[Rfam]
RNA: c-di-GMP-I riboswitch aptamer
Organism: Halalkalibacter okhensis
RNA sequence: CUUCGAUAACAGCAAACCUAUUGAAAGAUAGGGACGCAAAGCUACGGGCCUAAAGAAAGUUCUAUGGCAGCCGGGUUGCCGAA
Numbered sequence: 001c002u003u004c005g006a007u008a009a010c011a012g013c014a015a016a017c018c019u020a021u022u023g024a025a026a027g028a029u030a031g032g033g034a035c036g037c038a039a040a041g042c043u044a045c046g047g048g049c050c051u052a053a054a055g056a057a058a059g060u061u062c063u064a065u066g067g068c069a070g071c072c073g074g075g076u077u078g079c080c081g082a083a
Base pairs, nucleotide, nucleotide: 012037013036017032018031019030020029021028022027040077041076042075043074045073046072047071048068049067050066055062056061